[Rfam]
RNA: Alphaproteobacterial sRNA ar7
Organism: Ditibartonella apis
RNA sequence: UAUCGACACUGCGUCGAUAUGUCCGGUGUUCCGGCUUUGUCCCCCGCCGUUUACCGGAUACAACAGUCUACUUUCCCUCUCCGGACUGUUGAGUGAGUGCAGUAAAAAAGGCCGUUGUGGUUUCCCCCUCUCCACAACGGUCUAUUUUU
Numbered sequence: 001u002a003u004c005g006a007c008a009c010u011g012c013g014u015c016g017a018u019a020u021g022u023c024c025g026g027u028g029u030u031c032c033g034g035c036u037u038u039g040u041c042c043c044c045c046g047c048c049g050u051u052u053a054c055c056g057g058a059u060a061c062a063a064c065a066g067u068c069u070a071c072u073u074u075c076c077c078u079c080u081c082c083g084g085a086c087u088g089u090u091g092a093g094u095g096a097g098u099g100c101a102g103u104a105a106a107a108a109a110g111g112c113c114g115u116u117g118u119g120g121u122u123u124c125c126c127c128c129u130c131u132c133c134a135c136a137a138c139g140g141u142c143u144a145u146u147u148u149u
Stems, first nucleotide, its partner, number of pairs: 022058007033048003061091008106145001109143012
Dot-bracket structure: .....................(((((((....(((..........)))...)))))))..((((((((...............))))))))..............(..((((((((((((...........)))))))))))).)....